[Rfam]
This 179-nucleotide sequence from Alicyclobacillus tolerans belongs to the Rfam family "FMN riboswitch aptamer (RFN element)".
A search with the family's covariance model found it, with a score of 92 bits.
RNA sequence: UAGUUCCUUCGGGGCAGGGUGAGAUGGUUUCCCUAUACGCCAUCAAUUCCCGAUCGGUGGUGAGCGCAUCCCGUAUGAUGCCAAGUCCACGAGCUGAAAAAUGCAGUUUUCACUGCGGUACAGCAUGAACUGGUGAAAAUCCAGUACCGACGGUAUAGUCCGGAUGAAAGAAGGAAAUU
Numbered sequence: 001u002a003g004u005u006c007c008u009u010c011g012g013g014g015c016a017g018g019g020u021g022a023g024a025u026g027g028u029u030u031c032c033c034u035a036u037a038c039g040c041c042a043u044c045a046a047u048u049c050c051c052g053a054u055c056g057g058u059g060g061u062g063a064g065c066g067c068a069u070c071c072c073g074u075a076u077g078a079u080g081c082c083a084a085g086u087c088c089a090c091g092a093g094c095u096g097a098a099a100a101a102u103g104c105a106g107u108u109u110u111c112a113c114u115g116c117g118g119u120a121c122a123g124c125a126u127g128a129a130c131u132g133g134u135g136a137a138a139a140u141c142c143a144g145u146a147c148c149g150a151c152g153g154u155a156u157a158g159u160c161c162g163g164a165u166g167a168a169a170g171a172a173g174g175a176a177a178u179u
Stems, first nucleotide, its partner, number of pairs: 004176007017051003053159002055149002057090004085147002093124003129145005151162003
The family's consensus secondary structure is taken from published work.